[Rfam]
RNA sequence: CUCCCCGAAAUGCAUUUAGGUGCAGCGAUGAUUUAGUUUUAUAGAGGUAGAGCUACUGAUUGGAUGCGGGGGCUUCACCGCCUACCAAUUCCUGACAAACUCCGAAUGCUAUAAAAUGAUUUUCAUCAGUGAGGGCAUGGGUGCUAAGGUCCAUGUCCGAAAGGGAAAGAACCCAGACCAUCAGCUAAGGUCCCCAAAUAUAUGUUAAGUUGAAUAAACGAGGUUGAACUGCUUAGACAGCUAGGAUGUUGGCUUGGAAGCAGCCAUUCAUUUAAAGAGUGCGUAACAGCUCACUAGUCGAGCGGUUCGGCAUGGAUAAUAAUCGGGCAUAAACAUAUUACCGAAGCUAUGGACUAUAGUUUACUAUAGUGGUAGGGGAGCAUUGUAACAGGAGUGAAGGUGUACUGUGAGGUAUGCUGGACUGGUUACAAAAGAAAAU
Numbered sequence: 001c002u003c004c005c006c007g008a009a010a011u012g013c014a015u016u017u018a019g020g021u022g023c024a025g026c027g028a029u030g031a032u033u034u035a036g037u038u039u040u041a042u043a044g045a046g047g048u049a050g051a052g053c054u055a056c057u058g059a060u061u062g063g064a065u066g067c068g069g070g071g072g073c074u075u076c077a078c079c080g081c082c083u084a085c086c087a088a089u090u091c092c093u094g095a096c097a098a099a100c101u102c103c104g105a106a107u108g109c110u111a112u113a114a115a116a117u118g119a120u121u122u123u124c125a126u127c128a129g130u131g132a133g134g135g136c137a138u139g140g141g142u143g144c145u146a147a148g149g150u151c152c153a154u155g156u157c158c159g160a161a162a163g164g165g166a167a168a169g170a171a172c173c174c175a176g177a178c179c180a181u182c183a184g185c186u187a188a189g190g191u192c193c194c195c196a197a198a199u200a201u202a203u204g205u206u207a208a209g210u211u212g213a214a215u216a217a218a219c220g221a222g223g224u225u226g227a228a229c230u231g232c233u234u235a236g237a238c239a240g241c242u243a244g245g246a247u248g249u250u251g252g253c254u255u256g257g258a259a260g261c262a263g264c265c266a267u268u269c270a271u272u273u274a275a276a277g278a279g280u281g282c283g284u285a286a287c288a289g290c291u292c293a294c295u296a297g298u299c300g301a302g303c304g305g306u307u308c309g310g311c312a313u314g315g316a317u318a319a320u321a322a323u324c325g326g327g328c329a330u331a332a333a334c335a336u337a338u339u340a341c342c343g344a345a346g347c348u349a350u351g352g353a354c355u356a357u358a359g360u361u362u363a364c365u366a367u368a369g370u371g372g373u374a375g376g377g378g379a380g381c382a383u384u385g386u387a388a389c390a391g392g393a394g395u396g397a398a399g400g401u402g403u404a405c406u407g408u409g410a411g412g413u414a415u416g417c418u419g420g421a422c423u424g425g426u427u428a429c430a431a432a433a434g435a436a437a438a439u
Stems, first nucleotide, its partner, number of pairs: 001380006011024005026129001027127005035120001036117009050103001051101002057097002062092003068086002070083004133158010163174003178352004183348003189342003198339001200338006219314002223311010240298005246271003251265003272276001277292001281290002353370007381434001383431007391423002399418008

Background:
Rfam assigns this 439-nucleotide part of an RNA from Mesonia phycicola to the family "Bacterial large subunit ribosomal RNA". Taxonomically the source falls in Mesonia (Bacteria, Bacteroidota, Flavobacteriales, Flavobacteriaceae). Rfam links the family to the GO terms ribosome and structural constituent of ribosome.